[Rfam]
RNA sequence: AUGAGAAUAAGGGGAGAGCUUGCUACCAUGCAACGCCGAAGGAGCAAGUGUUUGGUAAUGUGUUACCUGCACGAAUCUCUCAGGCAAAAAAGACUCUUAUUUGACG
Dot-bracket structure: .....((((((((......((((......)))).(((((..(((...((((.................))))....))))).)))........)))))))).....
Numbered sequence: 001a002u003g004a005g006a007a008u009a010a011g012g013g014g015a016g017a018g019c020u021u022g023c024u025a026c027c028a029u030g031c032a033a034c035g036c037c038g039a040a041g042g043a044g045c046a047a048g049u050g051u052u053u054g055g056u057a058a059u060g061u062g063u064u065a066c067c068u069g070c071a072c073g074a075a076u077c078u079c080u081c082a083g084g085c086a087a088a089a090a091a092g093a094c095u096c097u098u099a100u101u102u103g104a105c106g
Stems, first nucleotide, its partner, number of pairs: 006101008020033004035085003038081002042079003048072004
Shown here is a 106-nucleotide RNA from Halalkalibacter wakoensis, a member of the family "Glycine riboswitch aptamer".